[Rfam]
RNA sequence: GAAGUCUGAAGGUAAGAAUGAAAUAGUACGAGAGGAACUUUCAUUCGGCGCCUCUAGUCGAUCGGUUGUCUGACAAGGCAGUGCCGAGCAGCCACGCGCCAAGGGAUAAAAGCUGAAAGCAUCUAAGCUUGAAACCCGGCCUAAAAAGAGACUUCGUUACAGGACAUGGGUAAAAGACCCGUUUGAUAGGCUUCGGAUGUACGCACGAAGGCAACGACGUGUUCAGUCCGGAAGUACUAACGUCCAAACA
Dot-bracket structure: (((((((..((((..((((((((...............))))))))(((((...(.(....((((((((((....)))))..)))))....).).)))))..(((....(((((...........)))))....))).))))......)))))))......(((((((((.......)))))....(((((((((((.....(((((..(....)..)))))....))).))))).)))..)))).....
Numbered sequence: 001g002a003a004g005u006c007u008g009a010a011g012g013u014a015a016g017a018a019u020g021a022a023a024u025a026g027u028a029c030g031a032g033a034g035g036a037a038c039u040u041u042c043a044u045u046c047g048g049c050g051c052c053u054c055u056a057g058u059c060g061a062u063c064g065g066u067u068g069u070c071u072g073a074c075a076a077g078g079c080a081g082u083g084c085c086g087a088g089c090a091g092c093c094a095c096g097c098g099c100c101a102a103g104g105g106a107u108a109a110a111a112g113c114u115g116a117a118a119g120c121a122u123c124u125a126a127g128c129u130u131g132a133a134a135c136c137c138g139g140c141c142u143a144a145a146a147a148g149a150g151a152c153u154u155c156g157u158u159a160c161a162g163g164a165c166a167u168g169g170g171u172a173a174a175a176g177a178c179c180c181g182u183u184u185g186a187u188a189g190g191c192u193u194c195g196g197a198u199g200u201a202c203g204c205a206c207g208a209a210g211g212c213a214a215c216g217a218c219g220u221g222u223u224c225a226g227u228c229c230g231g232a233a234g235u236a237c238u239a240a241c242g243u244c245c246a247a248a249c250a
Stems, first nucleotide, its partner, number of pairs: 001155007010142004016046008047100005055094001057092001062087005067080005103137003110130005162245004166182005187239003190235005195229003203222005210215001
Archaeal large subunit ribosomal RNA: a 250-nucleotide part of an RNA from Methanoregula boonei. A reference for the family is Yusupov et al. (2001), "Crystal structure of the ribosome at 5.5 A resolution", Science. Rfam's curators put it in the seed alignment.